[Rfam]
Nucleotides: 138
Stems, first nucleotide, its partner, number of pairs: 002061004018047004023042006075130006087116003092112002
Number, partner (000 for none) and nucleotide at each position: 001000c002061g003060c004059a005058g006000u007000c008000a009000a010000g011000u012000c013000a014000a015000a016000u017000u018047c019046a020045g021044c022000c023042c024041c025040u026039g027038u028037u029000c030000c031000c032000a033000u034000c035000g036000u037028a038027g039026c040025g041024g042023g043000c044021g045020c046019u047018g048000g049000c050000c051000c052000a053000g054000a055000u056000g057000g058005c059004u060003g061002c062000c063000a064000c065000a066000g067000c068000a069000a070000g071000c072000c073000c074000u075130g076129c077128g078127g079126c080125u081000c082000a083000u084000g085000g086000g087116c088115c089114c090000c091000g092112g093111g094000c095000c096000c097000c098000c099000c100000c101000g102000c103000g104000c105000u106000g107000g108000g109000a110000c111093c112092u113000g114089g115088g116087g117000a118000u119000a120000a121000g122000u123000c124000u125080g126079g127078c128077u129076g130075c131000a132000g133000a134000c135000a136000g137000g138000g
The record is a 138-nucleotide sequence from Neomonachus schauinslandi, which matches "Small nucleolar RNA SNORA5" in Rfam. The family has 6 seed sequences and 2,226 matches in Rfam 15.1. The family's RNA type in Rfam is H/ACA-box small nucleolar RNA. Its family is annotated with RNA processing and nucleolus in the Gene Ontology. The organism belongs to Neomonachus, within Eukaryota.